Rfam assigns this 94-nucleotide sequence from Pseudomonas sp. M1 to the family "ivy-DE RNA". Rfam classes the family as a cis-regulatory element.

RNA sequence: UGACCAGGGGGCCGGGAUGCUGGGGGGAGUGGUGAGCCCGCAGCGACCCAGGGGUACAGGGAGUGCCUCCGACGAGGGCCGGGUCAGGUGUGAG
Dot-bracket structure: (((((....(((((((.(.(((.(((..........))).))).).))).(((((((.....))))))).......)))).)))))........
Numbered sequence: 001u002g003a004c005c006a007g008g009g010g011g012c013c014g015g016g017a018u019g020c021u022g023g024g025g026g027g028a029g030u031g032g033u034g035a036g037c038c039c040g041c042a043g044c045g046a047c048c049c050a051g052g053g054g055u056a057c058a059g060g061g062a063g064u065g066c067c068u069c070c071g072a073c074g075a076g077g078g079c080c081g082g083g084u085c086a087g088g089u090g091u092g093a094g
Stems, first nucleotide, its partner, number of pairs: 001086005010080004014049003018045001020043003024039003051069007